[Rfam]
RNA: c-di-GMP-I riboswitch aptamer
RNA sequence: UUCCAUAUAUGGCAGGGGCGCAAAGCUAUAGAGGCUAACUUAGAGUCCUAUCUAAUAUGCCAGCCAGUUACCGAA
Numbered sequence: 001u002u003c004c005a006u007a008u009a010u011g012g013c014a015g016g017g018g019c020g021c022a023a024a025g026c027u028a029u030a031g032a033g034g035c036u037a038a039c040u041u042a043g044a045g046u047c048c049u050a051u052c053u054a055a056u057a058u059g060c061c062a063g064c065c066a067g068u069u070a071c072c073g074a075a
Stems, first nucleotide, its partner, number of pairs: 001015002003012003024069004031065001033061003040055004